[Rfam]
Nucleotides: 254
Stems, first nucleotide, its partner, number of pairs: 005063004023036001025035002040055006065118007073110005122213007129205003133201002136198011214252003217248001219246005
Number, partner (000 for none) and nucleotide at each position: 001000u002000g003000g004000a005063u006062u007061u008060u009000a010000a011000a012000a013000a014000u015000u016000a017000u018000u019000a020000a021000u022000u023036a024000u025035a026034a027000a028000a029000u030000a031000u032000a033000u034026u035025u036023u037000a038000u039000u040055a041054u042053a043052a044051a045050a046000u047000c048000g049000a050045u051044u052043u053042u054041a055040u056000u057000u058000a059000a060008a061007a062006a063005a064000a065118g066117g067116g068115g069114u070113g071112g072000g073110g074109g075108g076107g077106g078000g079000g080000a081000a082000g083000a084000g085000g086000g087000a088000u089000c090000g091000a092000c093000g094000a095000g096000g097000g098000c099000u100000g101000u102000g103000c104000a105000g106077c107076c108075c109074u110073c111000g112071c113070c114069g115068c116067c117066c118065c119000a120000c121000c122213u123212c124211g125210c126209c127208g128207g129205a130204a131203g132000g133201g134200c135000c136198g137197g138196c139195g140194a141193c142192g143191g144190u145189g146188g147000g148000c149000g150000a151000g152000g153000u154000c155000g156000g157000c158000u159000g160000g161000g162000u163000c164000g165000c166000c167000g168000g169000g170000c171000c172000c173000c174000g175000c176000c177000a178000g179000u180000g181000g182000c183000c184000g185000c186000g187000a188146c189145c190144a191143c192142c193141g194140u195139c196138g197137c198136c199000g200134g201133c202000c203131c204130u205129u206000c207128c208127c209126g210125g211124c212123g213122a214252g215251g216250u217248g218000g219246g220245c221244g222243g223242c224000g225000a226000c227000g228000g229000c230000g231000g232000c233000g234000g235000c236000g237000g238000c239000g240000a241000g242223g243222c244221u245220g246219c247000a248217c249000a250216g251215c252214c253000c254000u